A member of the RNA family "tRNA" from Colletotrichum asianum, 102 nucleotides long.
Nucleotides: 102
Stems, first nucleotide, its partner, number of pairs: 001101007010025003027064005078094005
Number, partner (000 for none) and nucleotide at each position: 001101g002100u003099c004098a005097a006096g007095g008000u009000g010025c011024c012023a013000g014000a015000g016000u017000g018000g019000u020000u021000a022000a023012u024011g025010g026000g027064c028063u029062g030061c031060c032000c033000u034000g035000c036000u037000a038000u039000c040000a041000a042000u043000u044000c045000u046000c047000u048000g049000a050000u051000g052000u053000c054000a055000g056000u057000u058000u059000a060031g061030g062029c063028a064027g065000u066000g067000g068000c069000u070000u071000c072000g073000g074000u075000c076000g077000c078094g079093c080092a081091g082090g083000u084000u085000c086000g087000a088000a089000u090082c091081c092080u093079g094078u095007c096006c097005u098004u099003g100002a101001c102000g

NCBI's taxonomy places the organism under Eukaryota, leotiomyceta, Glomerellales, Colletotrichum, Colletotrichum gloeosporioides species complex. It scores 47 bits against the family's covariance model.